Background:
The record is a 106-nucleotide sequence from Synechococcus lacustris, which matches "TPP riboswitch aptamer (THI element)" in Rfam. The match comes from Rfam's covariance-model search (69 bits). NCBI's taxonomy places the organism under Bacteria, Bacillati, Cyanobacteriota, Synechococcales, Synechococcus lacustris. Vitamin B(1) in its active form thiamin pyrophosphate (TPP) is an essential coenzyme that is synthesised by coupling of pyrimidine and thiazole moieties in bacteria. The previously detected thiamin-regulatory element, thi box was extended, resulting in a new, highly conserved RNA secondary structure, the THI element, which is widely distributed in eubacteria and also occurs in some archaea.
[Rfam]
RNA sequence: UUGGGUCACUAGGGGUGCCGUCGCCGAAAUGCCGGUGAAGGCUGAGAUCACACCCUCCGAACCUGAUCCGGUUAAUGCCGGCGCAGGGAAGUGCAGGAAGUGCGGC
Numbered sequence: 001u002u003g004g005g006u007c008a009c010u011a012g013g014g015g016u017g018c019c020g021u022c023g024c025c026g027a028a029a030u031g032c033c034g035g036u037g038a039a040g041g042c043u044g045a046g047a048u049c050a051c052a053c054c055c056u057c058c059g060a061a062c063c064u065g066a067u068c069c070g071g072u073u074a075a076u077g078c079c080g081g082c083g084c085a086g087g088g089a090a091g092u093g094c095a096g097g098a099a100g101u102g103c104g105g106c
Stems, first nucleotide, its partner, number of pairs: 007093004011056004016050001017042003021038006062087004068081004